[Rfam]
RNA sequence: UGCGCCGUCCUUGGGGAGUAGCCGAUUCCUGAAGCCUAAAAUUCAGGAAUGCUCGUAUCAACAUACUCGUUCUUCACUGAACGUGGUACGGGCGGCCAGGUUGGCAGGCGAGACCAUAGACACGCGAGCCGUCGUCUGGUUGGGGGUGGGUUGCGUGGAUAUGGAGAACCGCCCAGCCGAGGCU
Numbered sequence: 001u002g003c004g005c006c007g008u009c010c011u012u013g014g015g016g017a018g019u020a021g022c023c024g025a026u027u028c029c030u031g032a033a034g035c036c037u038a039a040a041a042u043u044c045a046g047g048a049a050u051g052c053u054c055g056u057a058u059c060a061a062c063a064u065a066c067u068c069g070u071u072c073u074u075c076a077c078u079g080a081a082c083g084u085g086g087u088a089c090g091g092g093c094g095g096c097c098a099g100g101u102u103g104g105c106a107g108g109c110g111a112g113a114c115c116a117u118a119g120a121c122a123c124g125c126g127a128g129c130c131g132u133c134g135u136c137u138g139g140u141u142g143g144g145g146g147u148g149g150g151u152u153g154c155g156u157g158g159a160u161a162u163g164g165a166g167a168a169c170c171g172c173c174c175a176g177c178c179g180a181g182g183c184u
Stems, first nucleotide, its partner, number of pairs: 026049008051093010068083005094184004100178001
Description
Shown here is a 184-nucleotide RNA from Dickeya dadantii, a member of the family "Manganese Mn2+ riboswitch aptamer (yybP-ykoY)". NCBI's taxonomy places the organism under Bacteria, Enterobacterales, Pectobacteriaceae, Dickeya, Dickeya dadantii. A search with the family's covariance model found it, with a score of 58 bits.